[Rfam]
RNA sequence: GCUGUUUUCGGGUGGAUGACCUUGCAAUUUUGGUUUUUCCAUUAAGGUUCUAAAAAAAUUGCACGGUAUCCAUCUGUAAUCCGCC
Numbered sequence: 001g002c003u004g005u006u007u008u009c010g011g012g013u014g015g016a017u018g019a020c021c022u023u024g025c026a027a028u029u030u031u032g033g034u035u036u037u038u039c040c041a042u043u044a045a046g047g048u049u050c051u052a053a054a055a056a057a058a059u060u061g062c063a064c065g066g067u068a069u070c071c072a073u074c075u076g077u078a079a080u081c082c083g084c085c
Stems, first nucleotide, its partner, number of pairs: 009076009019067002023063009